[Rfam]
RNA sequence: CUGCGGUGAUGCUUCUCUUAGGACACCUUUGGAUUUACCGUGAAAACAAACCAGUUCUGAGCAGC
Numbered sequence: 001c002u003g004c005g006g007u008g009a010u011g012c013u014u015c016u017c018u019u020a021g022g023a024c025a026c027c028u029u030u031g032g033a034u035u036u037a038c039c040g041u042g043a044a045a046a047c048a049a050a051c052c053a054g055u056u057c058u059g060a061g062c063a064g065c
Base pairs, nucleotide, nucleotide: 001064002063003062004061

Overview: Rfam assigns this 65-nucleotide sequence from Erinaceus europaeus to the family "Small nucleolar RNA SNORD58". The family is grouped with related families in Rfam's "SNORD58 clan". A reference for the family is Kiss-Laszlo et al. (1996), "Site-specific ribose methylation of preribosomal RNA: a novel function for small nucleolar RNAs", Cell. Rfam classes the family as a C/D-box small nucleolar RNA. Gene Ontology terms of the family: RNA processing and nucleolus. snoRNA U58 is found in introns 1, 3 and 6 of the ribosomal protein RPL17 gene in humans. It is one of the family's seed sequences.